The record is a 167-nucleotide RNA sequence from Geodermatophilus obscurus, which matches "c-di-AMP riboswitch aptamer (ydaO/yuaA leader)" in Rfam. The source organism's lineage runs through Bacteria, Actinomycetota, Geodermatophilales, Geodermatophilaceae and Geodermatophilus obscurus.
RNA sequence: GGCACGGCACCGCCGAACCGCCGACGUCCCCUCCCGGGGCCGAGGCGGACCGGGGACCCACCGAACCUCUGGGGUGAGUCCUGCCUGCGUCGGGGAAACGCAGGCAGGUAGGGCGCCGUCCGGCCCGAACCCGUCAGCUAACUCGGUAGGCGGUUGCGAGGAUGGGA
Dot-bracket structure: ..........((((...(((((.....................)))))((((((....((.........))(((.....(((((((((((.......)))))))))))..((((........))))...))).........)))))).))))...............